[Rfam]
RNA: Gammaprotebacteria rimP leader
Organism: Biostraticola tofi
RNA sequence: AACCGCAGUGCGGUUUACAGGGUCCAGUGACUUAAAGCCCCGAAUUUUCGGGGUUUUUUGUUAUUUAACUACAGAACUACUGGGCUAUUUAGCCCUUUUUUU
Numbered sequence: 001a002a003c004c005g006c007a008g009u010g011c012g013g014u015u016u017a018c019a020g021g022g023u024c025c026a027g028u029g030a031c032u033u034a035a036a037g038c039c040c041c042g043a044a045u046u047u048u049c050g051g052g053g054u055u056u057u058u059u060g061u062u063a064u065u066u067a068a069c070u071a072c073a074g075a076a077c078u079a080c081u082g083g084g085c086u087a088u089u090u091a092g093c094c095c096u097u098u099u100u101u102u
Stems, first nucleotide, its partner, number of pairs: 034057009082095004
Dot-bracket structure: .................................(((((((((......)))))))))........................((((......)))).......